[Rfam]
RNA sequence: GUAGAGACUAGAGUCUCACCCUGACACAAAUCAUUGUCUUGGUGUGCUUGAGUCCUCUUAGAUUGAAGACUGGUCCUAUUCACCGACUGGCUUAUUGUAGGCCAGUCACCCACAUGGGCAGUUACAAAU
Numbered sequence: 001g002u003a004g005a006g007a008c009u010a011g012a013g014u015c016u017c018a019c020c021c022u023g024a025c026a027c028a029a030a031u032c033a034u035u036g037u038c039u040u041g042g043u044g045u046g047c048u049u050g051a052g053u054c055c056u057c058u059u060a061g062a063u064u065g066a067a068g069a070c071u072g073g074u075c076c077u078a079u080u081c082a083c084c085g086a087c088u089g090g091c092u093u094a095u096u097g098u099a100g101g102c103c104a105g106u107c108a109c110c111c112a113c114a115u116g117g118g119c120a121g122u123u124a125c126a127a128a129u
Stems, first nucleotide, its partner, number of pairs: 003058004007053003012048002015046001017044004023038004070121003074117002085107002088104006
A member of the RNA family "Small nucleolar RNA SNORA3/SNORA45 family" from Labrus bergylta, 129 nucleotides long. The literature on the family includes a 2001 paper in EMBO J by Huttenhofer et al., "RNomics: an experimental approach that identifies 201 candidates for novel, small, non-messenger RNAs in mouse". The organism belongs to Labrus, within Eukaryota. The family's RNA type in Rfam is H/ACA-box small nucleolar RNA. Clan: SNORA3 clan.